[Rfam]
RNA: MIR473 microRNA precursor family
RNA sequence: GUUGUUUACUCUCCUUCAAGUGCUUCCAGCUAGUUAUAUAUAUAUAUAUAUGGUGAGCUUGAAGCCCUUUAGGGAGAGUAAACAAAAG
Dot-bracket structure: .....((((((((((..(((.(((((..................................))))).)))..)))))))))).......
Numbered sequence: 001g002u003u004g005u006u007u008a009c010u011c012u013c014c015u016u017c018a019a020g021u022g023c024u025u026c027c028a029g030c031u032a033g034u035u036a037u038a039u040a041u042a043u044a045u046a047u048a049u050a051u052g053g054u055g056a057g058c059u060u061g062a063a064g065c066c067c068u069u070u071a072g073g074g075a076g077a078g079u080a081a082a083c084a085a086a087a088g
Stems, first nucleotide, its partner, number of pairs: 006081010018069003022065005